[Rfam]
RNA sequence: GGGCUGAUGAUGAUUUGGAUCCGAGAGGAUCUUAGCGGAUUUCGGUGAGGCGGAUACUUCCGCCGCUGAUCGCCUUAUGUUGUUACACACACUGAAGCCC
Numbered sequence: 001g002g003g004c005u006g007a008u009g010a011u012g013a014u015u016u017g018g019a020u021c022c023g024a025g026a027g028g029a030u031c032u033u034a035g036c037g038g039a040u041u042u043c044g045g046u047g048a049g050g051c052g053g054a055u056a057c058u059u060c061c062g063c064c065g066c067u068g069a070u071c072g073c074c075u076u077a078u079g080u081u082g083u084u085a086c087a088c089a090c091a092c093u094g095a096a097g098c099c100c
Stems, first nucleotide, its partner, number of pairs: 001100005
RNA: Small nucleolar RNA R11/Z151
Organism: Zea mays